RNA sequence: CUCGAAAGACCUCCCAUUUCACCCGACGGCAGGAGCGGGGGACCCACCACACCGCCGGUCCGGCCUUCCGGAGCGGCUCGGGGUGAAGCCGCGUGCGCGCGGCCGGACACCUCCCGUCCGAACCCGACAGCUCACCUCGCAGGCGCCGGAGAGGAAUC
Number, nucleotide and partner (000 for none) at each position: 001c000002u000003c000004g000005a000006a000007a000008g000009a000010c000011c145012u000013c143014c142015c000016a000017u000018u034019u033020c032021a000022c000023c000024c000025g000026a000027c000028g000029g000030c000031a000032g020033g019034a018035g140036c139037g138038g137039g136040g135041g000042a000043c000044c000045c080046a000047c000048c000049a000050c000051a000052c000053c000054g000055c000056c000057g000058g000059u000060c000061c000062g000063g000064c000065c000066u000067u000068c000069c000070g000071g000072a000073g000074c000075g000076g000077c000078u000079c000080g045081g125082g124083g123084u000085g000086a000087a000088g000089c102090c101091g100092c099093g000094u000095g000096c000097g000098c000099g092100c091101g090102g089103c000104c000105g119106g118107a117108c116109a000110c000111c000112u000113c000114c000115c000116g108117u107118c106119c105120g000121a000122a000123c083124c082125c081126g000127a000128c000129a000130g000131c000132u000133c000134a000135c040136c039137u038138c037139g036140c035141a000142g014143g013144c000145g011146c000147c000148g000149g000150a000151g000152a000153g000154g000155a000156a000157u000158c000